[Rfam]
RNA sequence: AAAACCUUACUUGAACAUGAUCUGUUCUAUAAGCUCGUACAGCUGCAUCUUUAACGAUUAAAGAGGGAAGCAACUAACUCUGUUUGAUAAGAAGUGGCUUCUGGGCUAGAGCAUGAUUAACGGUUCUGAUCCAUUUGGAUCGAGUUGUGGAGAAUCGUUCUCAGCCGGUACCACCGGCUGAGAUGGCCCUGAAGCUUUCUGACAGAUU
Numbered sequence: 001a002a003a004a005c006c007u008u009a010c011u012u013g014a015a016c017a018u019g020a021u022c023u024g025u026u027c028u029a030u031a032a033g034c035u036c037g038u039a040c041a042g043c044u045g046c047a048u049c050u051u052u053a054a055c056g057a058u059u060a061a062a063g064a065g066g067g068a069a070g071c072a073a074c075u076a077a078c079u080c081u082g083u084u085u086g087a088u089a090a091g092a093a094g095u096g097g098c099u100u101c102u103g104g105g106c107u108a109g110a111g112c113a114u115g116a117u118u119a120a121c122g123g124u125u126c127u128g129a130u131c132c133a134u135u136u137g138g139a140u141c142g143a144g145u146u147g148u149g150g151a152g153a154a155u156c157g158u159u160c161u162c163a164g165c166c167g168g169u170a171c172c173a174c175c176g177g178c179u180g181a182g183a184u185g186g187c188c189c190u191g192a193a194g195c196u197u198u199c200u201g202a203c204a205g206a207u208u
Base pairs, nucleotide, nucleotide: 001038003035005033007031013027014026015025016024017023044068046066048064049063050062051061052060053059079206080205081204082203097195098194099193100192101191103189104188105187106186107185108184110159111158112157120148121147122146123145124144125143126142128141129140130139131138132137161181162180163179164178165177166176167175168174
Rfam assigns this 208-nucleotide RNA sequence from Dendrobium nobile to the family "Plant small nucleolar RNA U3". Its family is annotated with RNA processing and nucleolus in the Gene Ontology. Rfam classes the family as a C/D-box small nucleolar RNA. The base pairs follow the family's consensus structure, which is taken from published work. For this family Rfam cites "The uRNA database" (Zwieb, Nucleic Acids Res, 1997).